[Rfam]
RNA sequence: AAUGGCCGGGCAGGAGAGCAGGCGGCGCAAGCCGCUUCACCGAAGGCGCAAACUCCCAUGAACGCUCAGGUAGGCCUCGAUCUUCAUUGACCGGGCCAC
Number, nucleotide and partner (000 for none) at each position: 001a000002a000003u000004g000005g000006c094007c093008g092009g091010g000011c089012a088013g087014g000015a000016g000017a000018g000019c000020a037021g036022g035023c034024g000025g000026c000027g000028c000029a000030a000031g000032c000033c000034g023035c022036u021037u020038c000039a071040c070041c069042g067043a066044a000045g000046g065047c064048g063049c000050a000051a000052a059053c000054u000055c000056c000057c000058a000059u052060g000061a000062a000063c048064g047065c046066u043067c042068a000069g041070g040071u039072a000073g000074g000075c000076c000077u000078c000079g000080a000081u000082c000083u000084u000085c000086a000087u013088u012089g011090a000091c009092c008093g007094g006095g000096c000097c000098a000099c000
RNA: Glycine riboswitch aptamer
Organism: Ramlibacter sp. WS9